[Rfam]
RNA sequence: CUGGUUUCGUGUCGUAGACGUGCGACGGAGUCCACGGCGAAAUCAGUGAGCAUGUAAGACGUCCAUCGCACCGUGGGAGUUCGUCUCCCCACGGCCCGAACACGGGAGAGAUCGCUGAGCGUUACAAC
Numbered sequence: 001c002u003g004g005u006u007u008c009g010u011g012u013c014g015u016a017g018a019c020g021u022g023c024g025a026c027g028g029a030g031u032c033c034a035c036g037g038c039g040a041a042a043u044c045a046g047u048g049a050g051c052a053u054g055u056a057a058g059a060c061g062u063c064c065a066u067c068g069c070a071c072c073g074u075g076g077g078a079g080u081u082c083g084u085c086u087c088c089c090c091a092c093g094g095c096c097c098g099a100a101c102a103c104g105g106g107a108g109a110g111a112u113c114g115c116u117g118a119g120c121g122u123u124a125c126a127a128c
Stems, first nucleotide, its partner, number of pairs: 001046010071094005076088004
Shown here is a 128-nucleotide sequence from Corynebacterium lowii, a member of the family "atpB RNA". By type it is a cis-regulatory element. A search with the family's covariance model found it, with a score of 115 bits. Taxonomically the source falls in Corynebacterium (Bacteria, Bacillati, Actinomycetota, Corynebacteriaceae).